[Rfam]
RNA sequence: AGUAGUUGAAGGCAAACUAAGUGCGCAACGUCCUGUUGCAACGUUUGCCUGACCUACUUCCUGUAGG
Numbered sequence: 001a002g003u004a005g006u007u008g009a010a011g012g013c014a015a016a017c018u019a020a021g022u023g024c025g026c027a028a029c030g031u032c033c034u035g036u037u038g039c040a041a042c043g044u045u046u047g048c049c050u051g052a053c054c055u056a057c058u059u060c061c062u063g064u065a066g067g
Stems, first nucleotide, its partner, number of pairs: 011049007025039005053067005